[Rfam]
RNA: Ruegeria cis52 sRNA
Organism: Shimia aestuarii
RNA sequence: UCCGGAGCGCGUGUUUCAUCACGAUAUUGCGGAAGCUGACGCCCUUGAGCCGCGCGGUGCGGAUAUACUGUGCCGUCAUGACCUCGGCCAUGGAGGCGCGUGUCAUGCGGGCGAUAUAGCCCAUGCCGUAAAGCGCUACGGUCAGCACGGGCAGGGUGAAAUUCUCGAAGGUCACCUUGU
Numbered sequence: 001u002c003c004g005g006a007g008c009g010c011g012u013g014u015u016u017c018a019u020c021a022c023g024a025u026a027u028u029g030c031g032g033a034a035g036c037u038g039a040c041g042c043c044c045u046u047g048a049g050c051c052g053c054g055c056g057g058u059g060c061g062g063a064u065a066u067a068c069u070g071u072g073c074c075g076u077c078a079u080g081a082c083c084u085c086g087g088c089c090a091u092g093g094a095g096g097c098g099c100g101u102g103u104c105a106u107g108c109g110g111g112c113g114a115u116a117u118a119g120c121c122c123a124u125g126c127c128g129u130a131a132a133g134c135g136c137u138a139c140g141g142u143c144a145g146c147a148c149g150g151g152c153a154g155g156g157u158g159a160a161a162u163u164c165u166c167g168a169a170g171g172u173c174a175c176c177u178u179g180u
Base pairs, nucleotide, nucleotide: 002141003140004139006137007136008135009134010133014131015130016128020125021124028123029122031120040111042109046105047104048103051100052099053098054097055075056074057073058072059071060070061069062068082096083095084094085093145180146179147178149175150173151172152171154165155164156163